RNA: antisense RNA of dnaA mRNA
RNA sequence: UUUCGCAUUGGGUUUGCGCGCCAUAAUGCCGUUACCCACCGCGUGCAGCAGGUGAGUUUUACCCAGACCGGUGCCGCCAUA
Numbered sequence: 001u002u003u004c005g006c007a008u009u010g011g012g013u014u015u016g017c018g019c020g021c022c023a024u025a026a027u028g029c030c031g032u033u034a035c036c037c038a039c040c041g042c043g044u045g046c047a048g049c050a051g052g053u054g055a056g057u058u059u060u061a062c063c064c065a066g067a068c069c070g071g072u073g074c075c076g077c078c079a080u081a
Stems, first nucleotide, its partner, number of pairs: 004043003009038005016032003020029002051078004056074002061072003